Plastid-psbA-1 3UTR RNA: an 81-nucleotide RNA from Byrsonima coccolobifolia. Lineage of the source: Eukaryota > Mesangiospermae > fabids > Malpighiales > Byrsonima. By type it is a cis-regulatory element. It is one of the family's seed sequences.
[Rfam]
RNA sequence: CUUAGUAAUAGAAAUAUAUUACUAAAAAAAGGAGCAAUACCUAAUCUCUUGAUAGAACAAGAGAUUAGGUAUUGCUCCUUU
Numbered sequence: 001c002u003u004a005g006u007a008a009u010a011g012a013a014a015u016a017u018a019u020u021a022c023u024a025a026a027a028a029a030a031g032g033a034g035c036a037a038u039a040c041c042u043a044a045u046c047u048c049u050u051g052a053u054a055g056a057a058c059a060a061g062a063g064a065u066u067a068g069g070u071a072u073u074g075c076u077c078c079u080u081u
Stems, first nucleotide, its partner, number of pairs: 028081013042067003046063005